[Rfam]
The family of this 61-nucleotide sequence from Rubellimicrobium thermophilum is "Fluoride riboswitch aptamer (crcB RNA motif)". The family's consensus secondary structure is taken from published work. NCBI's taxonomy places the organism under Bacteria, Pseudomonadati, Pseudomonadota, Rubellimicrobium, Rubellimicrobium thermophilum.
RNA sequence: GUCCGCCCGCGGGAUGGGGCUUCCCGACAACCGCCUUGUGGCUGAUGGCUCCUGCUGCGGG
Dot-bracket structure: .........[[[[..((((((.]]]]......(((....)))....)))))).........
Numbered sequence: 001g002u003c004c005g006c007c008c009g010c011g012g013g014a015u016g017g018g019g020c021u022u023c024c025c026g027a028c029a030a031c032c033g034c035c036u037u038g039u040g041g042c043u044g045a046u047g048g049c050u051c052c053u054g055c056u057g058c059g060g061g
Stems, first nucleotide, its partner, number of pairs: 010026004016052006033042003